[Rfam]
RNA: c-di-GMP-I-GGC riboswitch aptamer
Organism: Pelotomaculum thermopropionicum
RNA sequence: UCCGACAAAGGUAAACCCGGCGAAAGCCGGGGGCACAAAGCCAGGGGCCUAAAGCGAAAGCCAGGGCAGCCGGCUGCCGGAA
Numbered sequence: 001u002c003c004g005a006c007a008a009a010g011g012u013a014a015a016c017c018c019g020g021c022g023a024a025a026g027c028c029g030g031g032g033g034c035a036c037a038a039a040g041c042c043a044g045g046g047g048c049c050u051a052a053a054g055c056g057a058a059a060g061c062c063a064g065g066g067c068a069g070c071c072g073g074c075u076g077c078c079g080g081a082a
Stems, first nucleotide, its partner, number of pairs: 001082001003079002011036002016031006034069001039075004045071002047067003